The record is a 315-nucleotide RNA from Haloglomus irregulare, which matches "Archaeal signal recognition particle RNA" in Rfam. The match comes from Rfam's covariance-model search (165 bits).
[Rfam]
RNA sequence: GGUCGGACUAGGCCGGGCAGUUAGGCCACUGCCCCAUCGCCUCCAACGGUCUUCAUGUUGGGGCCGACCACCGGGCGCGUCUGGGUGGACCAGUGCGGGCCCUGCAAGCCAACGUCGAAGCCUCGUCCCACGAGGGCAGCGGUCCGGGAACCGAUCUCUGCAGGGAGGCACGGGCCCGGUUGACCCCGAGAACCCCGUCAGGCGCGGAAGCGAGCAGCGGUAUCGGGGACACCUGUCGCCCGUGGGGUCGCGGGGUGGAGGAGGCGAGCAGGCCUCACCCGUGUUGGAACAGCCAGGCAACCCCGGCGUCCGGUU
Numbered sequence: 001g002g003u004c005g006g007a008c009u010a011g012g013c014c015g016g017g018c019a020g021u022u023a024g025g026c027c028a029c030u031g032c033c034c035c036a037u038c039g040c041c042u043c044c045a046a047c048g049g050u051c052u053u054c055a056u057g058u059u060g061g062g063g064c065c066g067a068c069c070a071c072c073g074g075g076c077g078c079g080u081c082u083g084g085g086u087g088g089a090c091c092a093g094u095g096c097g098g099g100c101c102c103u104g105c106a107a108g109c110c111a112a113c114g115u116c117g118a119a120g121c122c123u124c125g126u127c128c129c130a131c132g133a134g135g136g137c138a139g140c141g142g143u144c145c146g147g148g149a150a151c152c153g154a155u156c157u158c159u160g161c162a163g164g165g166a167g168g169c170a171c172g173g174g175c176c177c178g179g180u181u182g183a184c185c186c187c188g189a190g191a192a193c194c195c196c197g198u199c200a201g202g203c204g205c206g207g208a209a210g211c212g213a214g215c216a217g218c219g220g221u222a223u224c225g226g227g228g229a230c231a232c233c234u235g236u237c238g239c240c241c242g243u244g245g246g247g248u249c250g251c252g253g254g255g256u257g258g259a260g261g262a263g264g265c266g267a268g269c270a271g272g273c274c275u276c277a278c279c280c281g282u283g284u285u286g287g288a289a290c291a292g293c294c295a296g297g298c299a300a301c302c303c304c305g306g307c308g309u310c311c312g313g314u315u
Stems, first nucleotide, its partner, number of pairs: 001315008011065004015034007040061002044057002071306005079298005090287010101272005108265003113260001115258001120256007127246006134239001135237005141230001142181001144179005151172001155168005184228006195220004203212003
Rfam classes the family as a non-coding RNA gene.